[Rfam]
RNA sequence: UGAAAUAUAAGUGUCAUCGAAUACGUUGCAUGAGCGUAACCGAUUUCCCCGUUCUCCCGGCGCGUCCUGGUGCCACAGGUGUUUCCUCCCUCGCCUGGUUGGCGAUGCGCCCGCUUGCCCCGCUUUCGUGAAAACGAAAGCGGGGCUUUUU
Numbered sequence: 001u002g003a004a005a006u007a008u009a010a011g012u013g014u015c016a017u018c019g020a021a022u023a024c025g026u027u028g029c030a031u032g033a034g035c036g037u038a039a040c041c042g043a044u045u046u047c048c049c050c051g052u053u054c055u056c057c058c059g060g061c062g063c064g065u066c067c068u069g070g071u072g073c074c075a076c077a078g079g080u081g082u083u084u085c086c087u088c089c090c091u092c093g094c095c096u097g098g099u100u101g102g103c104g105a106u107g108c109g110c111c112c113g114c115u116u117g118c119c120c121c122g123c124u125u126u127c128g129u130g131a132a133a134a135c136g137a138a139a140g141c142g143g144g145g146c147u148u149u150u151u
Base pairs, nucleotide, nucleotide: 059111060110061109062108063107064106065105066104075099076097077096078095079094080093081092117146118145119144120143121142122141123140124139125138127136128135
RNA: Rhizobiales sRNA Atu_C7